[Rfam]
RNA sequence: UGAAAUUGACAGAGGUAUUUGCUUAUAUAACAAGCAGAUUGAGAAAAACUCUUAGAGCUGAUCAGGUUAAUACCUGCGGAGCAAGUUCAAUUAAUUUGAAUU
Numbered sequence: 001u002g003a004a005a006u007u008g009a010c011a012g013a014g015g016u017a018u019u020u021g022c023u024u025a026u027a028u029a030a031c032a033a034g035c036a037g038a039u040u041g042a043g044a045a046a047a048a049c050u051c052u053u054a055g056a057g058c059u060g061a062u063c064a065g066g067u068u069a070a071u072a073c074c075u076g077c078g079g080a081g082c083a084a085g086u087u088c089a090a091u092u093a094a095u096u097u098g099a100a101u102u
Stems, first nucleotide, its partner, number of pairs: 006090004011052004016046001017039008057082003063076004
Dot-bracket structure: .....((((.((((.(((((((((.......))))))))......)..))))....(((...((((......))))...)))....))))............
RNA: TPP riboswitch aptamer (THI element)
Organism: Mycoplasmopsis fermentans